[Rfam]
RNA sequence: UAGCAGCUUCAGGGUACUGUGCAAUUCAGAACCGGCAGUGAACGGCGAUAUGCCGUAGUCUGCGAGCCAGUGUGGAACUGGUUGAUUCGGUGAGAUUCCGAAACCGACGGUAAAGUCCGGAUGAGAGAAGCCACGC
Numbered sequence: 001u002a003g004c005a006g007c008u009u010c011a012g013g014g015u016a017c018u019g020u021g022c023a024a025u026u027c028a029g030a031a032c033c034g035g036c037a038g039u040g041a042a043c044g045g046c047g048a049u050a051u052g053c054c055g056u057a058g059u060c061u062g063c064g065a066g067c068c069a070g071u072g073u074g075g076a077a078c079u080g081g082u083u084g085a086u087u088c089g090g091u092g093a094g095a096u097u098c099c100g101a102a103a104c105c106g107a108c109g110g111u112a113a114a115g116u117c118c119g120g121a122u123g124a125g126a127g128a129a130g131c132c133a134c135g136c
Base pairs, nucleotide, nucleotide: 003134006131007130008129009128010127017029018028019027031116032115033106034105035063036062037061038060058104059103066082067081068080086102087101088100089099090098108119109118110117
Source information: FMN riboswitch aptamer (RFN element): a 136-nucleotide RNA sequence from Ruminococcus sp. OM06-36AC. A search with the family's covariance model found it, with a score of 106 bits. Taxonomically the source falls in Ruminococcus (Bacteria, Bacillati, Eubacteriales, Oscillospiraceae). From the family's description: The RFN element is a highly conserved domain that is found frequently in the 5'-untranslated regions of prokaryotic mRNAs that encode for flavin mononucleotide (FMN) biosynthesis and transport proteins. This element is a metabolite-dependent riboswitch that directly binds FMN in the absence of proteins.